[Rfam]
RNA: SAM riboswitch aptamer (S box leader)
RNA sequence: UUCUUAUCCAGAGAGGUGGAGGGACUGGCCCUUUGAAACCUCGGCAGCGGGACUGAUGAUAAUCAUCAGAAACUGUGCCAAUUCCAGCAGGUGCAUGCAUGCACAUGACAGAUAAGAA
Numbered sequence: 001u002u003c004u005u006a007u008c009c010a011g012a013g014a015g016g017u018g019g020a021g022g023g024a025c026u027g028g029c030c031c032u033u034u035g036a037a038a039c040c041u042c043g044g045c046a047g048c049g050g051g052a053c054u055g056a057u058g059a060u061a062a063u064c065a066u067c068a069g070a071a072a073c074u075g076u077g078c079c080a081a082u083u084c085c086a087g088c089a090g091g092u093g094c095a096u097g098c099a100u101g102c103a104c105a106u107g108a109c110a111g112a113u114a115a116g117a118a
Stems, first nucleotide, its partner, number of pairs: 001118008013042005021031003025087004043079004048075002053069005083110001088107002091104003